[Rfam]
RNA sequence: AGACAUCUGUUCCUUUGACGUGAUAUCUCACAACACGUUAGAUUUCAGUAUGUCUUAGAUCAAUUGGACUGCUUCACCCAGAAUUGUUAGUUAAUGUUCACACUGUCUGGCUUUUGCGGGUUCAUACAAAU
Numbered sequence: 001a002g003a004c005a006u007c008u009g010u011u012c013c014u015u016u017g018a019c020g021u022g023a024u025a026u027c028u029c030a031c032a033a034c035a036c037g038u039u040a041g042a043u044u045u046c047a048g049u050a051u052g053u054c055u056u057a058g059a060u061c062a063a064u065u066g067g068a069c070u071g072c073u074u075c076a077c078c079c080a081g082a083a084u085u086g087u088u089a090g091u092u093a094a095u096g097u098u099c100a101c102a103c104u105g106u107c108u109g110g111c112u113u114u115u116g117c118g119g120g121u122u123c124a125u126a127c128a129a130a131u
Stems, first nucleotide, its partner, number of pairs: 001055006008048001014042005020036003066123005078110005083104001085102003
RNA: Small nucleolar RNA SNORA79
Organism: Dufourea novaeangliae